[Rfam]
RNA: Fluoride riboswitch aptamer (crcB RNA motif)
Organism: Mucilaginibacter limnophilus
RNA sequence: UAACGCAAAGGCGAUGGUGUUCCGCCUAUUUGAACCGCUGCGAAGCUGAUGACGCCUACCCAAAU
Numbered sequence: 001u002a003a004c005g006c007a008a009a010g011g012c013g014a015u016g017g018u019g020u021u022c023c024g025c026c027u028a029u030u031u032g033a034a035c036c037g038c039u040g041c042g043a044a045g046c047u048g049a050u051g052a053c054g055c056c057u058a059c060c061c062a063a064a065u
Base pairs, nucleotide, nucleotide: 010026011025012024013023016056017055018054019053020052021051037046038045039044